[Rfam]
A member of the RNA family "Small nucleolar RNA SNORD11B" from Pangasianodon hypophthalmus, 84 nucleotides long. It scores 54 bits against the family's covariance model. The organism belongs to Pangasianodon, within Eukaryota. The family's RNA type in Rfam is C/D-box small nucleolar RNA. The literature on the family includes a 2006 paper in Nucleic Acids Res by Yang et al., "snoSeeker: an advanced computational package for screening of guide and orphan snoRNA genes in the human genome". The family has 37 seed sequences and 733 matches in Rfam 15.1. The family is grouped with related families in Rfam's "SNORD11 clan".
RNA sequence: UUCAAGCGGUGAUGAUAACGACAUCAUGUCACAUUCCUGAAAUCUCCAUGUGGCCUUUUUGUCACUACCUCAUCUGAGCUUAAU
Number, nucleotide and partner (000 for none) at each position: 001u000002u083003c000004a081005a080006g079007c078008g000009g000010u000011g000012a000013u000014g000015a000016u000017a000018a000019c000020g000021a000022c000023a000024u000025c000026a000027u000028g000029u000030c000031a000032c000033a000034u000035u000036c000037c000038u000039g000040a000041a000042a000043u000044c000045u000046c000047c000048a000049u000050g000051u000052g000053g000054c000055c000056u000057u000058u000059u000060u000061g000062u000063c000064a000065c000066u000067a000068c000069c000070u000071c000072a000073u000074c000075u000076g000077a000078g007079c006080u005081u004082a000083a002084u000